[Rfam]
RNA sequence: AGAGCAACGCAAGCGCCAGAGCUUGAACUGCGCGGGGGACUUCAGGGUCACGGCAGAUUGAGCUGACGAGGUGGAGGUGUUCGAAAUGUUCGGCGGGGACCUCCCGGUGAUGCGCCAGAGCCGUAAGCGGGAACGGAAAAUGAGCAGGGCAACCGCUCAGACAAAGCUUCCGCGGGCGCCGCAC
Numbered sequence: 001a002g003a004g005c006a007a008c009g010c011a012a013g014c015g016c017c018a019g020a021g022c023u024u025g026a027a028c029u030g031c032g033c034g035g036g037g038g039a040c041u042u043c044a045g046g047g048u049c050a051c052g053g054c055a056g057a058u059u060g061a062g063c064u065g066a067c068g069a070g071g072u073g074g075a076g077g078u079g080u081u082c083g084a085a086a087u088g089u090u091c092g093g094c095g096g097g098g099a100c101c102u103c104c105c106g107g108u109g110a111u112g113c114g115c116c117a118g119a120g121c122c123g124u125a126a127g128c129g130g131g132a133a134c135g136g137a138a139a140a141u142g143a144g145c146a147g148g149g150c151a152a153c154c155g156c157u158c159a160g161a162c163a164a165a166g167c168u169u170c171c172g173c174g175g176g177c178g179c180c181g182c183a184c
Stems, first nucleotide, its partner, number of pairs: 020064007029055003073104005081093004105123004128174002130171004141159005147154002
RNA: glmS glucosamine-6-phosphate activated ribozyme aptamer